[Rfam]
RNA sequence: UGGCCCAUCGGGGCAAUGGAUACCUGCUUUAAAAUUUUU
Numbered sequence: 001u002g003g004c005c006c007a008u009c010g011g012g013g014c015a016a017u018g019g020a021u022a023c024c025u026g027c028u029u030u031a032a033a034a035u036u037u038u039u
Stems, first nucleotide, its partner, number of pairs: 003014004017026003
Rfam assigns this 39-nucleotide RNA sequence from Neogale vison to the family "XIST RNA A repeat". NCBI's taxonomy places the organism under Eukaryota, Teleostomi, Sarcopterygii, Dipnotetrapodomorpha, Neogale. A search with the family's covariance model found it, with a score of 52 bits. The family has 54 seed sequences and 900 matches in Rfam 15.1. The family's consensus secondary structure was predicted with CMfinder. For this family Rfam cites "The Xist RNA A-repeat comprises a novel AUCG tetraloop fold and a platform for multimerization" (Duszczyk et al., RNA, 2011).